[Rfam]
Nucleotides: 190
Base pairs, nucleotide, nucleotide: 006185007184008183009182010181011180016083017082018081019080022077023076024075033067034066035065036064037063038062039061087116088115089114090113091112092111093110094109095108096107097106098105117143118142119141120140121139123137124136125135126134127133145175146174147173148172149171150170151169
Number, partner (000 for none) and nucleotide at each position: 001000a002000a003000c004000a005000a006185a007184g008183a009182u010181a011180g012000a013000g014000g015000u016083g017082c018081a019080g020000g021000c022077u023076u024075c025000a026000a027000u028000a029000g030000u031000a032000c033067c034066a035065c036064u037063u038062g039061u040000g041000a042000g043000g044000a045000g046000g047000a048000g049000c050000a051000a052000c053000u054000c055000c056000a057000a058000g059000g060000a061039a062038c063037a064036g065035g066034u067033g068000u069000g070000a071000a072000a073000g074000g075024g076023a077022a078000a079000a080019c081018u082017g083016c084000c085000g086000a087116a088115g089114u090113g091112g092111a093110u094109a095108a096107u097106u098105g099000u100000u101000g102000u103000u104000c105098c106097a107096a108095u109094u110093a111092u112091u113090u114089g115088c116087u117143g118142g119141u120140u121139u122000u123137g124136c125135a126134u127133u128000u129000a130000a131000g132000a133127a134126a135125u136124g137123c138000u139121g140120g141119a142118c143117u144000g145175u146174c147173a148172g149171a150170a151169a152000c153000g154000c155000c156000u157000u158000a159000g160000u161000a162000u163000g164000g165000c166000c167000u168000a169151u170150u171149u172148c173147u174146g175145g176000a177000g178000a179000g180011c181010u182009a183008u184007c185006u186000c187000a188000a189000c190000g
Overview: A member of the RNA family "Lysine riboswitch aptamer" from Lysinibacillus odysseyi, 190 nucleotides long.